Source information:
The record is a 53-nucleotide sequence from Digitalis lanata, which matches "Plastid-ccsA-ndhD-2 3UTR RNA" in Rfam. Rfam describes the family as follows. Plastid ccsA-ndhD-2 is a non-coding RNA (ncRNA) recognised in plastids. It was found in the three prime untranslated region (3UTR) of ccsA and ndhD genes, its 3UTR location suggests a role in transcript maturation. Rfam classes the family as a cis-regulatory element. The family has 421 seed sequences and 875 matches in Rfam 15.1. Pairs were carried over by alignment from the consensus structure, which was predicted with LocARNA.
RNA sequence: GGCAAGACCCUGGUGAAUCAAAUAGUUAGUGAUUCACCAGGGUCUUGCCAGUU
Number, nucleotide and partner (000 for none) at each position: 001g000002g048003c047004a046005a045006g044007a043008c042009c041010c040011u039012g038013g037014u036015g035016a034017a033018u032019c031020a030021a000022a000023u000024a000025g000026u000027u000028a000029g000030u020031g019032a018033u017034u016035c015036a014037c013038c012039a011040g010041g009042g008043u007044c006045u005046u004047g003048c002049c000050a000051g000052u000053u000